[Rfam]
RNA sequence: UGUCAACUUUAGGGGUGUCCUAGCGGACUGAGAUAAUACCCUUUGAACCUGAUCCGGGUAAUGCUGGCGAAGGGAAAAGUGACGGCAACGCU
Numbered sequence: 001u002g003u004c005a006a007c008u009u010u011a012g013g014g015g016u017g018u019c020c021u022a023g024c025g026g027a028c029u030g031a032g033a034u035a036a037u038a039c040c041c042u043u044u045g046a047a048c049c050u051g052a053u054c055c056g057g058g059u060a061a062u063g064c065u066g067g068c069g070a071a072g073g074g075a076a077a078a079g080u081g082a083c084g085g086c087a088a089c090g091c092u
Base pairs, nucleotide, nucleotide: 006080007079008078009077010076011042012041013040014039016036017028018027019026020025048073049072050071054067055066056065057064